[Rfam]
RNA sequence: AAAUGACCUUUUGCAAUUUUACACAAGAUUGUACGAAACGAUCUUGAAUAUAUACAAUUAGGACAUUACUAUGGAUCAUCAGGUAGAGGGGUUUUAGUCGGUAGGUCCGAGAACUUCUUCCUCGGAAAUCCGACACUACCCAGUCGUACGGACGGCUGGGUGUCUUUUGAAGAUUUCCCCUCUUCCACGAAA
Numbered sequence: 001a002a003a004u005g006a007c008c009u010u011u012u013g014c015a016a017u018u019u020u021a022c023a024c025a026a027g028a029u030u031g032u033a034c035g036a037a038a039c040g041a042u043c044u045u046g047a048a049u050a051u052a053u054a055c056a057a058u059u060a061g062g063a064c065a066u067u068a069c070u071a072u073g074g075a076u077c078a079u080c081a082g083g084u085a086g087a088g089g090g091g092u093u094u095u096a097g098u099c100g101g102u103a104g105g106u107c108c109g110a111g112a113a114c115u116u117c118u119u120c121c122u123c124g125g126a127a128a129u130c131c132g133a134c135a136c137u138a139c140c141c142a143g144u145c146g147u148a149c150g151g152a153c154g155g156c157u158g159g160g161u162g163u164c165u166u167u168u169g170a171a172g173a174u175u176u177c178c179c180c181u182c183u184u185c186c187a188c189g190a191a192a
Stems, first nucleotide, its partner, number of pairs: 016051002019048002058191002061188001082186002085183002088179003097134005106126006112119002136162001138161005

Shown here is a 192-nucleotide sequence from Agrilus planipennis, a member of the family "R2 RNA element". The source organism's lineage runs through Eukaryota, Bilateria, Hexapoda, Elateriformia and Agrilus. The family has 15 seed sequences and 3,698 matches in Rfam 15.1. It scores 50 bits against the family's covariance model. A reference for the family is Ruschak et al. (2004), "Secondary structure models of the 3' untranslated regions of diverse R2 RNAs", RNA. Rfam classes the family as a cis-regulatory element. This family represents the 3' UTR region of the R2 retrotransposable element. This family is known to interact with the R2-encoded reverse transcriptase in a reaction known as target primed reverse transcription (TPRT). Gene Ontology term of the family: regulation of reverse transcription.